[Rfam]
RNA sequence: AAGUCCAUGAUGAGGGACUUUCCUCAGCAAUUCCUUGUAACGCUCCCAUGACUCAUACAAUGACUCUCCGUCCUGCUGAGAGAAGGUGGUGAUAUCAUUCCGCAUCU
Numbered sequence: 001a002a003g004u005c006c007a008u009g010a011u012g013a014g015g016g017a018c019u020u021u022c023c024u025c026a027g028c029a030a031u032u033c034c035u036u037g038u039a040a041c042g043c044u045c046c047c048a049u050g051a052c053u054c055a056u057a058c059a060a061u062g063a064c065u066c067u068c069c070g071u072c073c074u075g076c077u078g079a080g081a082g083a084a085g086g087u088g089g090u091g092a093u094a095u096c097a098u099u100c101c102g103c104a105u106c107u
Stems, first nucleotide, its partner, number of pairs: 001107001003105002005102001058075002
Record summary: Plant small nucleolar RNA R71: a 107-nucleotide sequence from Nelumbo nucifera. The family's RNA type in Rfam is C/D-box small nucleolar RNA. Lineage of the source: Eukaryota > Tracheophyta > Mesangiospermae > Proteales > Nelumbo.